[Rfam]
RNA sequence: GGGGAGCUUCGGCGCCCUAUACCCCGGACCUCAUGGUCCUGAAGCAAACGGAAGACAGUAA
Number, nucleotide and partner (000 for none) at each position: 001g018002g017003g016004g015005a000006g013007c012008u000009u000010c000011g000012g007013c006014g000015c004016c003017c002018u001019a000020u000021a000022c000023c000024c000025c000026g000027g040028a037029c036030c035031u000032c000033a000034u000035g030036g029037u028038c000039c000040u027041g000042a000043a000044g000045c000046a000047a000048a000049c000050g000051g000052a000053a000054g000055a000056c000057a000058g000059u000060a000061a000